Annotation: A member of the RNA family "RNase MRP" from Phaeosphaeria sp. MPI-PUGE-AT-0046c, 431 nucleotides long. Rfam classes the family as a ribozyme. A reference for the family is Schmitt et al. (1993), "Secondary structure of RNase MRP RNA as predicted by phylogenetic comparison", FASEB J. About the family: RNase MRP is an enzymatically active ribonucleoprotein with two distinct roles in eukaryotes. Rfam 15.1 lists 3,510 matches to the family in 2,315 species. Clan: RNaseP clan. Its family is annotated with rRNA processing, ribonuclease MRP activity and ribonuclease MRP complex in the Gene Ontology.
RNA sequence: UCCUCGCUCGAAGAAUCGCAACGAAGCACACAUACAGAGCGCUUUCGAGUGUCUCUCCGUCGCUUUGGGAGAAAGUCCCCGGACAUCAGUCUUUAUGACUGCACUUUCAGCAACGAACCGCCAUAGAAGCGCGGCUUCCUACCGAUCACGGCACUUCUUCACACUCCUUUCCGCUAGCACUCCUCUCACUCGCUUUUCCAACGCCGCUCGUGGAGGGGCUGGCACCGGGGCGAUGAUAUGAGCCCGCUGGCUACCUUGCUUGUUGUCGCCGAGGGAUCGCGAGAGCUAGGAGGAGGACGGUAGACGUCGAAGCUGUGUCAGGUACGGAGGGUCUUCUUGUCCAGUUUAUGGUUAUGCGAUUGUCAUUCGCACGUCUCGGUCAUACGAGAUGCGUGGACGAUAACUCAAUGGGGCUUAUUCUUGACGCGAGG
Numbered sequence: 001u002c003c004u005c006g007c008u009c010g011a012a013g014a015a016u017c018g019c020a021a022c023g024a025a026g027c028a029c030a031c032a033u034a035c036a037g038a039g040c041g042c043u044u045u046c047g048a049g050u051g052u053c054u055c056u057c058c059g060u061c062g063c064u065u066u067g068g069g070a071g072a073a074a075g076u077c078c079c080c081g082g083a084c085a086u087c088a089g090u091c092u093u094u095a096u097g098a099c100u101g102c103a104c105u106u107u108c109a110g111c112a113a114c115g116a117a118c119c120g121c122c123a124u125a126g127a128a129g130c131g132c133g134g135c136u137u138c139c140u141a142c143c144g145a146u147c148a149c150g151g152c153a154c155u156u157c158u159u160c161a162c163a164c165u166c167c168u169u170u171c172c173g174c175u176a177g178c179a180c181u182c183c184u185c186u187c188a189c190u191c192g193c194u195u196u197u198c199c200a201a202c203g204c205c206g207c208u209c210g211u212g213g214a215g216g217g218g219c220u221g222g223c224a225c226c227g228g229g230g231c232g233a234u235g236a237u238a239u240g241a242g243c244c245c246g247c248u249g250g251c252u253a254c255c256u257u258g259c260u261u262g263u264u265g266u267c268g269c270c271g272a273g274g275g276a277u278c279g280c281g282a283g284a285g286c287u288a289g290g291a292g293g294a295g296g297a298c299g300g301u302a303g304a305c306g307u308c309g310a311a312g313c314u315g316u317g318u319c320a321g322g323u324a325c326g327g328a329g330g331g332u333c334u335u336c337u338u339g340u341c342c343a344g345u346u347u348a349u350g351g352u353u354a355u356g357c358g359a360u361u362g363u364c365a366u367u368c369g370c371a372c373g374u375c376u377c378g379g380u381c382a383u384a385c386g387a388g389a390u391g392c393g394u395g396g397a398c399g400a401u402a403a404c405u406c407a408a409u410g411g412g413g414c415u416u417a418u419u420c421u422u423g424a425c426g427c428g429a430g431g
Stems, first nucleotide, its partner, number of pairs: 002431006008424004014361006022067006037057003041053001043051001073416003077413004249333003255329003259326001261324001263321003266315001268313002296308004363400002366397005